[Rfam]
RNA sequence: AUACUUACCUGGCGCAGGAGUUUACGUUGAUCCCUUAGGACGUACUCCCAGGGUGAGGCCUUGACAUUGCACUACGUCUCGGUUGACCCUUGUGAUUGCCCCAAAUGUGGGUAACUCGUGCGCGUAAUUUUUGUUAGUGGGGACUGCGUACGCGCUAUCCCUAC
Dot-bracket structure: ...........((((.(((((..(((((..........)))))))))).((((.(.(((...(((..........)))...)))..))))).((((((.((.......)).))).))).))))..............((((((..(((....)))..)))))).
The family of this 164-nucleotide RNA sequence from Strigamia maritima is "U1 spliceosomal RNA".
A search with the family's covariance model found it, with a score of 132 bits.
The family's RNA type in Rfam is spliceosomal small nuclear RNA.